[Rfam]
RNA: ARRPOF RNA
RNA sequence: AUGAUUCUUAGUUAAUCUUCAUUCAACCAUGGGUUGUUUUUGUUAUGCAAAAAAAUAAAUAAAACUUAGGUUGAAUAAACUUAAGUUUUUUUAUUUUAGUUAAGAAAAAUAGACAAGUGGUGGUAGUCCGCCACUCUAAGGGGACGCCUUUAGAAGAAGAGGCUAGGAGGUAUUCCGGUGUGGGAUACUUAGUGAUAUGCAACGCUAAUUGCAUAAGAUUGUAGGACGGAAUUUACAGUCUUGGUUUUUCAAACCUGAAACUAAGUAAGC
Numbered sequence: 001a002u003g004a005u006u007c008u009u010a011g012u013u014a015a016u017c018u019u020c021a022u023u024c025a026a027c028c029a030u031g032g033g034u035u036g037u038u039u040u041u042g043u044u045a046u047g048c049a050a051a052a053a054a055a056u057a058a059a060u061a062a063a064a065c066u067u068a069g070g071u072u073g074a075a076u077a078a079a080c081u082u083a084a085g086u087u088u089u090u091u092u093a094u095u096u097u098a099g100u101u102a103a104g105a106a107a108a109a110u111a112g113a114c115a116a117g118u119g120g121u122g123g124u125a126g127u128c129c130g131c132c133a134c135u136c137u138a139a140g141g142g143g144a145c146g147c148c149u150u151u152a153g154a155a156g157a158a159g160a161g162g163c164u165a166g167g168a169g170g171u172a173u174u175c176c177g178g179u180g181u182g183g184g185a186u187a188c189u190u191a192g193u194g195a196u197a198u199g200c201a202a203c204g205c206u207a208a209u210u211g212c213a214u215a216a217g218a219u220u221g222u223a224g225g226a227c228g229g230a231a232u233u234u235a236c237a238g239u240c241u242u243g244g245u246u247u248u249u250c251a252a253a254c255c256u257g258a259a260a261c262u263a264a265g266u267a268a269g270c
Stems, first nucleotide, its partner, number of pairs: 008208005039063006046057002066078003079100003083096004118133004124165005172232006186267008196215005218239006241258004246253001